[Rfam]
RNA sequence: UGUUAAAAAUUUCAUCAAUUUGUACUCUUAAAAACUGGCAUGGUUAACAGAAUAAUCAGAAAGUGACACACGGACUAAUUUUUAACAGUAAAAAUAAAUAUAAUUUUUAACA
Numbered sequence: 001u002g003u004u005a006a007a008a009a010u011u012u013c014a015u016c017a018a019u020u021u022g023u024a025c026u027c028u029u030a031a032a033a034a035c036u037g038g039c040a041u042g043g044u045u046a047a048c049a050g051a052a053u054a055a056u057c058a059g060a061a062a063g064u065g066a067c068a069c070a071c072g073g074a075c076u077a078a079u080u081u082u083u084a085a086c087a088g089u090a091a092a093a094a095u096a097a098a099u100a101u102a103a104u105u106u107u108u109a110a111c112a
Stems, first nucleotide, its partner, number of pairs: 002111010014099002018095004023090004028085006

The family of this 112-nucleotide sequence from Gossypium aridum is "MIR7502 microRNA precursor family". NCBI's taxonomy places the organism under Eukaryota, Magnoliopsida, Gunneridae, Malvaceae, Gossypium. The base pairs follow the family's consensus structure, which was predicted with RNAalifold.